Record summary:
A member of the RNA family "Histone 3' UTR stem-loop" from Physeter macrocephalus, 47 nucleotides long. Rfam classes the family as a cis-regulatory element. The family has 50 seed sequences and 44,596 matches in Rfam 15.1. For this family Rfam cites "The sequence of the stem and flanking sequences at the 3' end of histone mRNA are critical determinants for the binding of the stem-loop binding protein" (Williams and Marzluff, Nucleic Acids Res, 1995).

[Rfam]
RNA sequence: UCAAAGGCUCUUUUCAGAGCCACCCACUAAUCUCAGAUAAAAGAGCU
Numbered sequence: 001u002c003a004a005a006g007g008c009u010c011u012u013u014u015c016a017g018a019g020c021c022a023c024c025c026a027c028u029a030a031u032c033u034c035a036g037a038u039a040a041a042a043g044a045g046c047u
Stems, first nucleotide, its partner, number of pairs: 006021006
Taxonomically the source falls in Physeter (Eukaryota, Bilateria, Gnathostomata, Dipnotetrapodomorpha). Pairs were carried over by alignment from the consensus structure, which is taken from published work.